The family of this 120-nucleotide RNA sequence from Peribacillus psychrosaccharolyticus is "RNA Staph. aureus E (RoxS)". From the family's description: It was shown to be regulated by the presence of nitric oxide (NO). Rfam classes the family as a small RNA. A reference for the family is Geissmann et al. (2009), "A search for small noncoding RNAs in Staphylococcus aureus reveals a conserved sequence motif for regulation", Nucleic Acids Res. NCBI's taxonomy places the organism under Bacteria, Bacillati, Bacillota, Bacilli, Peribacillus. It scores 87 bits against the family's covariance model.
RNA sequence: GUGAAGUUUAUCACAAACAAACUUAUACCCCUUUGUUUGACCGUGAAAACUUUCUCCCAUCCCCUUUGUUCGUAUUUUAUAGAUGAAUCCCUGCAAACUCGCGAUUUUCAGGGAUUCCAA
Numbered sequence: 001g002u003g004a005a006g007u008u009u010a011u012c013a014c015a016a017a018c019a020a021a022c023u024u025a026u027a028c029c030c031c032u033u034u035g036u037u038u039g040a041c042c043g044u045g046a047a048a049a050c051u052u053u054c055u056c057c058c059a060u061c062c063c064c065u066u067u068g069u070u071c072g073u074a075u076u077u078u079a080u081a082g083a084u085g086a087a088u089c090c091c092u093g094c095a096a097a098c099u100c101g102c103g104a105u106u107u108u109c110a111g112g113g114a115u116u117c118c119a120a
Stems, first nucleotide, its partner, number of pairs: 003054004008049001011046004018039005025034001070081001073079001085117009095107003